This 105-nucleotide sequence from Photobacterium aquimaris belongs to the Rfam family "Qrr RNA". A search with the family's covariance model found it, with a score of 66 bits. This family represents a set of small RNAs (the Qrr RNAs) that are thought to be involved in the regulation of quorum sensing in Vibrio species. It is believed that these RNAs, guided by a protein, Hfq, can mediate the destabilisation of the quorum-sensing master regulators LuxR/HapR mRNAs. Gene Ontology term of the family: quorum sensing. The source organism's lineage runs through Bacteria, Pseudomonadati, Gammaproteobacteria, Vibrionaceae and Photobacterium.
RNA sequence: CGACUCUCUAUCUUAGGGGUCAACCUAGCCAACUGACGUUGUUUGUGGAUUCUUUCACGUAACAAUGAAGCCAACCGAAACUCUUUAUCGGCUGGCUUUUUUUUU
Numbered sequence: 001c002g003a004c005u006c007u008c009u010a011u012c013u014u015a016g017g018g019g020u021c022a023a024c025c026u027a028g029c030c031a032a033c034u035g036a037c038g039u040u041g042u043u044u045g046u047g048g049a050u051u052c053u054u055u056c057a058c059g060u061a062a063c064a065a066u067g068a069a070g071c072c073a074a075c076c077g078a079a080a081c082u083c084u085u086u087a088u089c090g091g092c093u094g095g096c097u098u099u100u101u102u103u104u105u
Stems, first nucleotide, its partner, number of pairs: 002021005039068004045058005071095003075091004